[Rfam]
RNA sequence: AUAGAAUUCCCUGGAGAAUGAACUCUAGGAAGAUAGAAUAAAAAAAAUUAAGUAAGAUAAGUAGUAGGAAUGAACGAACAUGUUUCAAU
Numbered sequence: 001a002u003a004g005a006a007u008u009c010c011c012u013g014g015a016g017a018a019u020g021a022a023c024u025c026u027a028g029g030a031a032g033a034u035a036g037a038a039u040a041a042a043a044a045a046a047a048u049u050a051a052g053u054a055a056g057a058u059a060a061g062u063a064g065u066a067g068g069a070a071u072g073a074a075c076g077a078a079c080a081u082g083u084u085u086c087a088a089u
Stems, first nucleotide, its partner, number of pairs: 007031002010029007072085004
Description
Shown here is an 89-nucleotide RNA sequence from Cocos nucifera, a member of the family "Plastid-rpl20 3UTR RNA". NCBI's taxonomy places the organism under Eukaryota, Spermatophyta, Magnoliopsida, Liliopsida, Cocos. About the family: Plastid rpl20 is a non-coding RNA (ncRNA) recognised in plastids. By type it is a cis-regulatory element.